[Rfam]
The record is a 129-nucleotide RNA from Phyllostomus discolor, which matches "Small nucleolar RNA SNORA38" in Rfam.
RNA sequence: CUCUCCUACAAAGGUGUGUCUAUGGUUCCCUGUCUUUGGACAUAAGAAUUGGAGGUAAAGAAAUGUGGACUUGGACAAGUCUGGGGCCAGCUUGCUCCCUGCAGGCUCAAGACCAACCAUCUCGCAUAG
Numbered sequence: 001c002u003c004u005c006c007u008a009c010a011a012a013g014g015u016g017u018g019u020c021u022a023u024g025g026u027u028c029c030c031u032g033u034c035u036u037u038g039g040a041c042a043u044a045a046g047a048a049u050u051g052g053a054g055g056u057a058a059a060g061a062a063a064u065g066u067g068g069a070c071u072u073g074g075a076c077a078a079g080u081c082u083g084g085g086g087c088c089a090g091c092u093u094g095c096u097c098c099c100u101g102c103a104g105g106c107u108c109a110a111g112a113c114c115a116a117c118c119a120u121c122u123c124g125c126a127u128a129g
Stems, first nucleotide, its partner, number of pairs: 002055005017042005024030002067122003071119001089107007
ACA38 is a member of the H/ACA class of snoRNA that guide the sites of modification of uridines to pseudouridines. The base pairs follow the family's consensus structure, which was predicted with RNAfold. The family's RNA type in Rfam is H/ACA-box small nucleolar RNA. Taxonomically the source falls in Phyllostomus (Eukaryota, Vertebrata, Theria, Boreoeutheria).